[Rfam]
RNA sequence: GGUUUGAUGCCACGUUUCCGGUAGCCGGAAAAAGGCAAUGACCGGAAAUGCUAUGAUCAAACCGAAAUUAAUUUUUUUUGAAUAUUUCGCAUUUUGAUAGGAAUCUGUGGAUUGAUUUCUGUUUUAUUCAUCCACGGAGCCGUUUUGUGCGAUUACAUUU
Numbered sequence: 001g002g003u004u005u006g007a008u009g010c011c012a013c014g015u016u017u018c019c020g021g022u023a024g025c026c027g028g029a030a031a032a033a034g035g036c037a038a039u040g041a042c043c044g045g046a047a048a049u050g051c052u053a054u055g056a057u058c059a060a061a062c063c064g065a066a067a068u069u070a071a072u073u074u075u076u077u078u079u080g081a082a083u084a085u086u087u088c089g090c091a092u093u094u095u096g097a098u099a100g101g102a103a104u105c106u107g108u109g110g111a112u113u114g115a116u117u118u119c120u121g122u123u124u125u126a127u128u129c130a131u132c133c134a135c136g137g138a139g140c141c142g143u144u145u146u147g148u149g150c151g152a153u154u155a156c157a158u159u160u
Stems, first nucleotide, its partner, number of pairs: 002062007009054001013050006020043003024036003087152005100141002105137003109133004